This 170-nucleotide RNA sequence belongs to the Rfam family "Group II catalytic intron D1-D4-3".
On this family, see Chu et al., EMBO J 2001: "Control of branch-site choice by a group II intron".

RNA sequence: CAUCCCGUGAGGGCGUGUGGGGUGGAAGCCCGAGGCGAAUCGGAGUCCCGAAUGAAAGUGAAUCCCCGUAAGGCUGGUCUGUCUGGGCAAGCGUGCCGUUCAACGCGACGCCCGAUAUCCAACCGCGGCAGGACAGUAGUGGGGGCGGCGGCGACGAGAAGUCAUUCAUC
Numbered sequence: 001c002a003u004c005c006c007g008u009g010a011g012g013g014c015g016u017g018u019g020g021g022g023u024g025g026a027a028g029c030c031c032g033a034g035g036c037g038a039a040u041c042g043g044a045g046u047c048c049c050g051a052a053u054g055a056a057a058g059u060g061a062a063u064c065c066c067c068g069u070a071a072g073g074c075u076g077g078u079c080u081g082u083c084u085g086g087g088c089a090a091g092c093g094u095g096c097c098g099u100u101c102a103a104c105g106c107g108a109c110g111c112c113c114g115a116u117a118u119c120c121a122a123c124c125g126c127g128g129c130a131g132g133a134c135a136g137u138a139g140u141g142g143g144g145g146c147g148g149c150g151g152c153g154a155c156g157a158g159a160a161g162u163c164a165u166u167c168a169u170c
Stems, first nucleotide, its partner, number of pairs: 004013003028170001032166001035163001040157003045152001046150001048148003063145005073137003078132006085113004091106004